[Rfam]
RNA: Bacterial large signal recognition particle RNA
RNA sequence: CCGCGCAGCCGGGGAGAUAGCGGUGCCCUGUACCUGCAAUCCGCUACAGCAGGGGUGAUGCUUUGCGUCGGGUCUAUUUUGUAGAGCUGCCCUUUAUAAGUGAUGUUGACGCUUGGGUCUUGUGCAACGGAAAUUUGUGAAUCGUGUCAGGUCAGGAAUGGAGCAGCACUAAGCAAAACCUUUCGUGUGACGCGAGGGUGCCUGAGCUGAGUUAACUGUAGAGGUAACGUCUAUGAGAUUUUCACAAAACAAAGCGCGCGG
Numbered sequence: 001c002c003g004c005g006c007a008g009c010c011g012g013g014g015a016g017a018u019a020g021c022g023g024u025g026c027c028c029u030g031u032a033c034c035u036g037c038a039a040u041c042c043g044c045u046a047c048a049g050c051a052g053g054g055g056u057g058a059u060g061c062u063u064u065g066c067g068u069c070g071g072g073u074c075u076a077u078u079u080u081g082u083a084g085a086g087c088u089g090c091c092c093u094u095u096a097u098a099a100g101u102g103a104u105g106u107u108g109a110c111g112c113u114u115g116g117g118u119c120u121u122g123u124g125c126a127a128c129g130g131a132a133a134u135u136u137g138u139g140a141a142u143c144g145u146g147u148c149a150g151g152u153c154a155g156g157a158a159u160g161g162a163g164c165a166g167c168a169c170u171a172a173g174c175a176a177a178a179c180c181u182u183u184c185g186u187g188u189g190a191c192g193c194g195a196g197g198g199u200g201c202c203u204g205a206g207c208u209g210a211g212u213u214a215a216c217u218g219u220a221g222a223g224g225u226a227a228c229g230u231c232u233a234u235g236a237g238a239u240u241u242u243c244a245c246a247a248a249a250c251a252a253a254g255c256g257c258g259c260g261g
Stems, first nucleotide, its partner, number of pairs: 001261006008056003011029004016024001018022001033053005061254005070245001072243001076239010088226002092223006100216002102213003111207008119196006125187002128185005134177005144169004152161003